[Rfam]
RNA sequence: GGGGACCUUCGGGGCCCUAUCCAUCACGGACGGACCGGCAACGGUUCGCCAAGCAGACGGAAGACAGAAA
Numbered sequence: 001g002g003g004g005a006c007c008u009u010c011g012g013g014g015c016c017c018u019a020u021c022c023a024u025c026a027c028g029g030a031c032g033g034a035c036c037g038g039c040a041a042c043g044g045u046u047c048g049c050c051a052a053g054c055a056g057a058c059g060g061a062a063g064a065c066a067g068a069a070a
Stems, first nucleotide, its partner, number of pairs: 001018004006014003031048007
This 70-nucleotide RNA sequence from Rubellimicrobium roseum belongs to the Rfam family "L2-Alphaproteobacteria ribosomal protein leader".
It is annotated as a cis-regulatory leader.
Taxonomically the source falls in Rubellimicrobium (Bacteria, Pseudomonadati, Rhodobacterales, Roseobacteraceae).
A search with the family's covariance model found it, with a score of 60 bits.
Pairs were carried over by alignment from the consensus structure, which is taken from published work.